This 89-nucleotide sequence from Striga hermonthica belongs to the Rfam family "mir-160 microRNA precursor family".
Rfam 15.1 lists 1,502 matches to the family in 247 species.
The literature on the family includes a 2002 paper in Cell by Rhoades et al., "Prediction of plant microRNA targets".

RNA sequence: AUAUGCCUGGCUCCCUGUAUGCCACCCGGCAACCUCAAUCCGGCCGGUGGAUUGGCGGAGGCGGGCGGCGUACGAGGAGCCAAGCAUGC
Numbered sequence: 001a002u003a004u005g006c007c008u009g010g011c012u013c014c015c016u017g018u019a020u021g022c023c024a025c026c027c028g029g030c031a032a033c034c035u036c037a038a039u040c041c042g043g044c045c046g047g048u049g050g051a052u053u054g055g056c057g058g059a060g061g062c063g064g065g066c067g068g069c070g071u072a073c074g075a076g077g078a079g080c081c082a083a084g085c086a087u088g089c
Stems, first nucleotide, its partner, number of pairs: 002088005008082007016074008027063002